Rfam assigns this 81-nucleotide sequence from Microvirga flocculans to the family "ZMP/ZTP riboswitch aptamer (pfl RNA motif)". A search with the family's covariance model found it, with a score of 56 bits.
[Rfam]
RNA sequence: CAUCCGCCGCGUUACUGGCGAGAUCGGAUGGAGCACCAUCGGGAAGCGCGGGUUUGGACGCCGUUCGCCUGGGCACCACAU
Numbered sequence: 001c002a003u004c005c006g007c008c009g010c011g012u013u014a015c016u017g018g019c020g021a022g023a024u025c026g027g028a029u030g031g032a033g034c035a036c037c038a039u040c041g042g043g044a045a046g047c048g049c050g051g052g053u054u055u056g057g058a059c060g061c062c063g064u065u066c067g068c069c070u071g072g073g074c075a076c077c078a079c080a081u
Stems, first nucleotide, its partner, number of pairs: 007051006015043002017069005028039004060074003